RNA: mir-4524 microRNA precursor family
RNA sequence: AGUUAUUUGAAUGUCAGCUGCAUGCAUCUCUCUCAUUAUAUAUAUAUAUAUAUAUAUAAUGAGAGAGAUGCAUGCAGCUGACAUUCAAAUAACU
Numbered sequence: 001a002g003u004u005a006u007u008u009g010a011a012u013g014u015c016a017g018c019u020g021c022a023u024g025c026a027u028c029u030c031u032c033u034c035a036u037u038a039u040a041u042a043u044a045u046a047u048a049u050a051u052a053u054a055u056a057u058a059a060u061g062a063g064a065g066a067g068a069u070g071c072a073u074g075c076a077g078c079u080g081a082c083a084u085u086c087a088a089a090u091a092a093c094u
Base pairs, nucleotide, nucleotide: 003092004091005090006089007088009086010085011084012083013082014081015080016079017078018077019076020075021074022073023072024071025070027068028067029066030065031064032063033062034061035060036059037058038057039056040055041054